The record is a 155-nucleotide RNA sequence from Alkalibaculum bacchi, which matches "M-box riboswitch aptamer (ykoK leader)" in Rfam. On this family, see Ramesh et al., J Mol Biol 2011: "Insights into metalloregulation by M-box riboswitch RNAs via structural analysis of manganese-bound complexes". The base pairs follow the family's consensus structure. It scores 108 bits against the family's covariance model. From the family's description: M-box riboswitch, also know as ykoK leader is described as a metaloregulatory RNA that sense divalent metals and function as a genetic control element of genes related to divalent metal transport in bacteria. It was first reported upstream of the B.subtilis ykoK gene and genes with related functions in other bacteria. The organism belongs to Alkalibaculum, within Bacteria.
[Rfam]
RNA sequence: AAAUAAUCUCGGUAGGUGAGGUUACUAUAAGGAUAUGGGUUGUUGCCGUAAAAGGAUGGAAACAUUCUGAACUGGUUAGCAGGUUUUGUCGCAAGGCAUAAUCUAAUACAAUUUCAGCGCCUUAUAGAGCUAAAACUUGAACGAGGAUGUACGUU
Numbered sequence: 001a002a003a004u005a006a007u008c009u010c011g012g013u014a015g016g017u018g019a020g021g022u023u024a025c026u027a028u029a030a031g032g033a034u035a036u037g038g039g040u041u042g043u044u045g046c047c048g049u050a051a052a053a054g055g056a057u058g059g060a061a062a063c064a065u066u067c068u069g070a071a072c073u074g075g076u077u078a079g080c081a082g083g084u085u086u087u088g089u090c091g092c093a094a095g096g097c098a099u100a101a102u103c104u105a106a107u108a109c110a111a112u113u114u115c116a117g118c119g120c121c122u123u124a125u126a127g128a129g130c131u132a133a134a135a136c137u138u139g140a141a142c143g144a145g146g147a148u149g150u151a152c153g154u155u
Base pairs, nucleotide, nucleotide: 006150007149009147010146011142013094015137016136017135020131021130022129025127026126027125028124029123030122031121032120039112040111041110042109043108046074048072049071055066056065057064058063082103083102084101085100088097089096090095